[Rfam]
RNA sequence: UGGUUUCUCUCUUUGGUUAUCUAGCUGUAUGAGUUUGAACACUUUCAUAAAGCUAGAUAACCGAAAGUAGAAAUAA
Number, nucleotide and partner (000 for none) at each position: 001u076002g000003g074004u073005u072006u000007c070008u069009c000010u067011c000012u065013u064014u063015g062016g061017u060018u059019a058020u057021c056022u055023a054024g053025c052026u051027g000028u049029a048030u047031g046032a045033g044034u000035u000036u000037g000038a000039a000040c000041a000042c000043u000044u033045u032046c031047a030048u029049a028050a000051a026052g025053c024054u023055a022056g021057a020058u019059a018060a017061c016062c015063g014064a013065a012066a000067g010068u000069a008070g007071a000072a005073a004074u003075a000076a001

A member of the RNA family "mir-9/mir-79 microRNA precursor family" from Sinocyclocheilus anshuiensis, 76 nucleotides long.
The match comes from Rfam's covariance-model search (77 bits).
Taxonomically the source falls in Sinocyclocheilus (Eukaryota, Eumetazoa, Actinopterygii, Neopterygii).
For this family Rfam cites "Identification of novel genes coding for small expressed RNAs" (Lagos-Quintana et al., Science, 2001).
The family's consensus secondary structure was predicted with RNAalifold.